Source information:
Shown here is a 167-nucleotide RNA sequence from Erwinia sp. OLSSP12, a member of the family "SraG RNA".

[Rfam]
RNA sequence: CUUCUGAUGCAUCCUCGCGACUAAUGACAAACUUCAAUCCAGUGGAAUAAAGCUUCUCAUUAGCCGCGCGAACCUCUGCAGCAAAAGAUCACCCCUGCAACAAUACAUUAAUUUGAUUUGAAUUGCUGCCGGUUACUUGAAAAAAGGGGCCACAAAGGCCCCUUUUU
Numbered sequence: 001c002u003u004c005u006g007a008u009g010c011a012u013c014c015u016c017g018c019g020a021c022u023a024a025u026g027a028c029a030a031a032c033u034u035c036a037a038u039c040c041a042g043u044g045g046a047a048u049a050a051a052g053c054u055u056c057u058c059a060u061u062a063g064c065c066g067c068g069c070g071a072a073c074c075u076c077u078g079c080a081g082c083a084a085a086a087g088a089u090c091a092c093c094c095c096u097g098c099a100a101c102a103a104u105a106c107a108u109u110a111a112u113u114u115g116a117u118u119u120g121a122a123u124u125g126c127u128g129c130c131g132g133u134u135a136c137u138u139g140a141a142a143a144a145a146g147g148g149g150c151c152a153c154a155a156a157g158g159c160c161c162c163u164u165u166u167u
Stems, first nucleotide, its partner, number of pairs: 001087003005083002009079003016070004021063007094120001146162006

Rfam's curators write: This RNA was discovered in E. coli during a large scale screen. Evidence was found for specific cleavage of this RNA. Taxonomically the source falls in Erwinia (Bacteria, Pseudomonadati, Pseudomonadota, Erwiniaceae). Rfam classes the family as a small RNA.